The record is a 118-nucleotide RNA sequence from Clostridium acetobutylicum, which matches "Ribosomal protein L20 leader" in Rfam. The family's RNA type in Rfam is cis-regulatory leader. Rfam links the family to the GO term regulation of gene expression. The organism belongs to Clostridium acetobutylicum, within Bacteria.
RNA sequence: GUAUUGAAGAAGAAACUUGCCGUUUCUCACCUUACAGCAAAGCUAGUAAGGUUAAAGAUAUGCAGCUUAUUUUGCUAUGUAUAUUUGAGACGGUGAAUAACCGUCUUUUUUUAUUAUA
Numbered sequence: 001g002u003a004u005u006g007a008a009g010a011a012g013a014a015a016c017u018u019g020c021c022g023u024u025u026c027u028c029a030c031c032u033u034a035c036a037g038c039a040a041a042g043c044u045a046g047u048a049a050g051g052u053u054a055a056a057g058a059u060a061u062g063c064a065g066c067u068u069a070u071u072u073u074g075c076u077a078u079g080u081a082u083a084u085u086u087g088a089g090a091c092g093g094u095g096a097a098u099a100a101c102c103g104u105c106u107u108u109u110u111u112u113a114u115u116a117u118a
Base pairs, nucleotide, nucleotide: 011027012026013025014024015023016022029052030051031050034047035046037043038042089105090104091103092102093101094100